Bacterial RNase P class A: a 383-nucleotide sequence from Fulvivirga sedimenti.

[Rfam]
Nucleotides: 383
Stems, first nucleotide, its partner, number of pairs: 001379010011368001012332007020032005037366003041363005046218004055265001058214005063077005078100001079098008101209002106207002108203003123148002126143007156174002159171003175198001176196004181192004222289004232280006259272005296315008
Number, partner (000 for none) and nucleotide at each position: 001379a002378a003377u004376g005375c006374a007373a008372g009371c010370c011368g012332c013331c014330c015329u016328g017327u018326c019000g020032c021031u022030c023029g024028u025000u026000a027000u028024a029023c030022g031021g032020g033000a034000g035000g036000a037366a038365a039364g040000u041363c042362c043361g044360g045359g046218c047217a048216g049215c050000a051000u052000a053000g054000a055265g056000c057000a058214g059213c060212g061211c062210a063077c064076u065075u066074c067073c068000u069000a070000a071000c072000g073067g074066g075065a076064a077063g078100g079098a080097u081096c082095c083094u084093g085092a086091u087000u088000u089000c090000g091086a092085u093084c094083g095082g096081g097080g098079u099000a100078c101209a102208g103000a104000a105000a106207g107206u108203g109202c110201c111000a112000c113000a114000g115000a116000a117000a118000a119000c120000a121000a122000a123148c124147u125000a126143c127142c128141u129140c130139a131138a132137u133000u134000u135000c136000g137132a138131u139130u140129g141128a142127g143126g144000a145000a146000a147124a148123g149000g150000u151000g152000a153000a154000a155000a156174g157173g158000c159171g160170g161169g162000g163000u164000a165000a166000g167000a168000g169161c170160c171159c172000a173157c174156c175198g176196c177195u178194c179193u180000u181192c182191g183190g184189g185000g186000u187000g188000a189184c190183c191182c192181g193179g194178g195177a196176g197000g198175c199000a200000u201110g202109g203108u204000a205000a206107a207106c208102c209101u210062u211061g212060c213059g214058c215049g216048c217047u218046g219000a220000a221000a222289g223288g224287c225286c226000a227000a228000a229000u230000a231000a232280g233279u234278c235277c236276g237275g238000c239000c240000c241000a242000g243000a244000g245000g246000g247000c248000g249000g250000c251000u252000c253000g254000u255000c256000c257000a258000a259272u260271g261270u262269u263268c264000u265055u266000c267000g268263g269262a270261a271260c272259g273000g274000a275237c276236c277235g278234g279233a280232u281000g282000g283000g284000u285000a286225g287224g288223c289222u290000g291000a292000u293000a294000g295000a296315u297314c298313c299312u300311g301310g302309u303308g304000g305000u306000g307000a308303c309302g310301c311300c312299a313298g314297g315296a316000c317000c318000a319000g320000a321000u322000a323000a324000a325000u326018g327017a328016c329015a330014g331013g332012g333000c334000u335000g336000a337000c338000g339000g340000c341000g342000a343000a344000a345000g346000c347000c348000g349000g350000c351000a352000g353000a354000c355000a356000g357000a358000a359045c360044c361043c362042g363041g364039c365038u366037u367000a368011c369000a370010g371009g372008c373007u374006u375005g376004u377003a378002u379001u380000a381000u382000c383000u
Background
Rfam classes the family as a ribozyme. Ribonuclease P (RNase P) is a ubiquitous endoribonuclease, found in archaea, bacteria and eukarya as well as chloroplasts and mitochondria. Its family is annotated with dimeric ribonuclease P complex, tRNA processing and ribonuclease P activity in the Gene Ontology.